[Rfam]
RNA sequence: GGAGCCACGGGGAGGGAUCCCAAUCCAGCCUUAGGAAAACAAACCUGCCACAGAGUCUUGGAGAUUGGUGACUGUGUUAAUGACUUA
Numbered sequence: 001g002g003a004g005c006c007a008c009g010g011g012g013a014g015g016g017a018u019c020c021c022a023a024u025c026c027a028g029c030c031u032u033a034g035g036a037a038a039a040c041a042a043a044c045c046u047g048c049c050a051c052a053g054a055g056u057c058u059u060g061g062a063g064a065u066u067g068g069u070g071a072c073u074g075u076g077u078u079a080a081u082g083a084c085u086u087a
Stems, first nucleotide, its partner, number of pairs: 002086003006082002010078002013075001015073002018070001020068006029061002038059002041056001045053003

The family of this 87-nucleotide RNA from Equus caballus is "mir-9014 microRNA precursor family". The family has 2 seed sequences and 581 matches in Rfam 15.1. NCBI's taxonomy places the organism under Eukaryota, Craniata, Gnathostomata, Tetrapoda, Equus. The family's consensus secondary structure was predicted with RNAalifold. It scores 71 bits against the family's covariance model. Gene Ontology terms of the family: miRNA-mediated post-transcriptional gene silencing and RISC complex.